[Rfam]
Eukaryotic small subunit ribosomal RNA: a 589-nucleotide part of an RNA from Megachile rotundata. Pairs were carried over by alignment from the consensus structure, which is taken from published work. NCBI's taxonomy places the organism under Eukaryota, Dicondylia, Aculeata, Megachilinae, Megachile. It is one of the family's seed sequences. Gene Ontology terms of the family: structural constituent of ribosome and ribosome.

RNA sequence: UCCCUGGUUGAUCCUGCCAGUAGUCAUAUGCUUGUCUCAAAGAUUAAGCCAUGCAUGUCUAAGUACAUACCGAAUUAAGGUGAAACCGCGAAUGGCUCAUUAAAUCAGUUUUGGUUUCUUAGAUCGUACAACAAUUUACUUGGAUAACUGUGGUAAUUCUAGAGCUAAUACAUGCAAACCAGAAUUCCACCCAGAGAUGGGAGGAAUGCUUUUAUUAGAUCAAAACCAAUCGAUGUGGUGGACGGUUCGUCCGUCUUCCCAUCGUCAGCUAUGAUGAUUCUGAAUAACUUUGUGCUGAUCGUACGGUUUUCUAGCACCGACGACGGAUCUUUCAAAUGACUGCCUUAUCAACUGUCGAUGGUAGGUUCUACGCCUACUAUGGUUGUAACGGGUAACGGGAAAUCAGGGUUCGAUUCCGGAGAGGGAGCCUGAGAAACGGCUACCACAUCCAAGGAAGGCAGUAGGCGCGCAAAUUACCCACUCCCGGCACGGGGAGGUAGUGACGAAAAAUAACGAUACGGGACUCGUCCGAGGCCCCGUAAUCGGAAUAAGUAACUCCAGCUCCAAUAGCGUAUAUUAAAGUUGUUGC
Numbered sequence: 001u002c003c004c005u006g007g008u009u010g011a012u013c014c015u016g017c018c019a020g021u022a023g024u025c026a027u028a029u030g031c032u033u034g035u036c037u038c039a040a041a042g043a044u045u046a047a048g049c050c051a052u053g054c055a056u057g058u059c060u061a062a063g064u065a066c067a068u069a070c071c072g073a074a075u076u077a078a079g080g081u082g083a084a085a086c087c088g089c090g091a092a093u094g095g096c097u098c099a100u101u102a103a104a105u106c107a108g109u110u111u112u113g114g115u116u117u118c119u120u121a122g123a124u125c126g127u128a129c130a131a132c133a134a135u136u137u138a139c140u141u142g143g144a145u146a147a148c149u150g151u152g153g154u155a156a157u158u159c160u161a162g163a164g165c166u167a168a169u170a171c172a173u174g175c176a177a178a179c180c181a182g183a184a185u186u187c188c189a190c191c192c193a194g195a196g197a198u199g200g201g202a203g204g205a206a207u208g209c210u211u212u213u214a215u216u217a218g219a220u221c222a223a224a225a226c227c228a229a230u231c232g233a234u235g236u237g238g239u240g241g242a243c244g245g246u247u248c249g250u251c252c253g254u255c256u257u258c259c260c261a262u263c264g265u266c267a268g269c270u271a272u273g274a275u276g277a278u279u280c281u282g283a284a285u286a287a288c289u290u291u292g293u294g295c296u297g298a299u300c301g302u303a304c305g306g307u308u309u310u311c312u313a314g315c316a317c318c319g320a321c322g323a324c325g326g327a328u329c330u331u332u333c334a335a336a337u338g339a340c341u342g343c344c345u346u347a348u349c350a351a352c353u354g355u356c357g358a359u360g361g362u363a364g365g366u367u368c369u370a371c372g373c374c375u376a377c378u379a380u381g382g383u384u385g386u387a388a389c390g391g392g393u394a395a396c397g398g399g400a401a402a403u404c405a406g407g408g409u410u411c412g413a414u415u416c417c418g419g420a421g422a423g424g425g426a427g428c429c430u431g432a433g434a435a436a437c438g439g440c441u442a443c444c445a446c447a448u449c450c451a452a453g454g455a456a457g458g459c460a461g462u463a464g465g466c467g468c469g470c471a472a473a474u475u476a477c478c479c480a481c482u483c484c485c486g487g488c489a490c491g492g493g494g495a496g497g498u499a500g501u502g503a504c505g506a507a508a509a510a511u512a513a514c515g516a517u518a519c520g521g522g523a524c525u526c527g528u529c530c531g532a533g534g535c536c537c538c539g540u541a542a543u544c545g546g547a548a549u550a551a552g553u554a555a556c557u558c559c560a561g562c563u564c565c566a567a568u569a570g571c572g573u574a575u576a577u578u579a580a581a582g583u584u585g586u587u588g589c
Stems, first nucleotide, its partner, number of pairs: 004020005022578003026575007035508001037506002041501001042468001048466003052463003057089002063086002069081002096421003106342003112336001115335002121330004139174001141172002148164002151161003184207005191200002212287005225275001227273002261270001263268001299323004304319004344392003351383003358380008396418004401410003423444002426441003446457001448455002474499001476498003482494005514545003517541006524533003552558001